Rfam assigns this 102-nucleotide RNA from Anoxynatronum buryatiense to the family "Purine riboswitch aptamer". Its Rfam clan is "Purine riboswitches". Riboswitches are metabolite binding domains within certain messenger RNAs that serve as precision sensors for their corresponding targets. Pairs were carried over by alignment from the consensus structure, which is taken from published work. Gene Ontology term of the family: purine nucleobase biosynthetic process. The match comes from Rfam's covariance-model search (76 bits).
[Rfam]
RNA sequence: CAAACUGAAUGAUGCUGCACUCAUAUAAUGCCACUAAUACGGAAUGGCAGUCUCUACAAGGGAACCGUAAAUUCCUUUUCUAUGGGUGAAUUGUUGUUAUUG
Numbered sequence: 001c002a003a004a005c006u007g008a009a010u011g012a013u014g015c016u017g018c019a020c021u022c023a024u025a026u027a028a029u030g031c032c033a034c035u036a037a038u039a040c041g042g043a044a045u046g047g048c049a050g051u052c053u054c055u056a057c058a059a060g061g062g063a064a065c066c067g068u069a070a071a072u073u074c075c076u077u078u079u080c081u082a083u084g085g086g087u088g089a090a091u092u093g094u095u096g097u098u099a100u101u102g
Stems, first nucleotide, its partner, number of pairs: 018088008029049005035043001058078007